[Rfam]
RNA sequence: CCGUAUCUUUUUGCGGUCUGGGCUUGCUGUUCUGUAACUGAGUAGCCAGGAAGCCCUUACCCCAAAAAGUAUGUG
Numbered sequence: 001c002c003g004u005a006u007c008u009u010u011u012u013g014c015g016g017u018c019u020g021g022g023c024u025u026g027c028u029g030u031u032c033u034g035u036a037a038c039u040g041a042g043u044a045g046c047c048a049g050g051a052a053g054c055c056c057u058u059a060c061c062c063c064a065a066a067a068a069g070u071a072u073g074u075g
Base pairs, nucleotide, nucleotide: 007069008068009067010066011065012064013063015061016060017059020056021055022054023053025051027049028048
About this RNA: A member of the RNA family "mir-129 microRNA precursor family" from Bagarius yarrelli, 75 nucleotides long. It scores 88 bits against the family's covariance model. Taxonomically the source falls in Bagarius (Eukaryota, Opisthokonta, Otophysi, Characiphysae). For this family Rfam cites "Identification of tissue-specific microRNAs from mouse" (Lagos-Quintana et al., Curr Biol, 2002). Gene Ontology terms of the family: synapse, RISC complex and long-term synaptic potentiation.